RNA sequence: CCCGAGCACUCGGGACGACAUGUGGAGUGCGGUCGACGGUAGAGCGCCUCCGAAUCGCAAG
Numbered sequence: 001c002c003c004g005a006g007c008a009c010u011c012g013g014g015a016c017g018a019c020a021u022g023u024g025g026a027g028u029g030c031g032g033u034c035g036a037c038g039g040u041a042g043a044g045c046g047c048c049u050c051c052g053a054a055u056c057g058c059a060a061g
Stems, first nucleotide, its partner, number of pairs: 001014005016057003024051004

The family of this 61-nucleotide RNA from Halogeometricum pallidum is "eL15-Euryarchaeota ribosomal protein leader". Rfam's curators put it in the seed alignment. On this family, see Eckert and Weinberg, BMC Microbiol 2020: "Discovery of 20 novel ribosomal leader candidates in bacteria and archaea". The family's consensus secondary structure is taken from published work.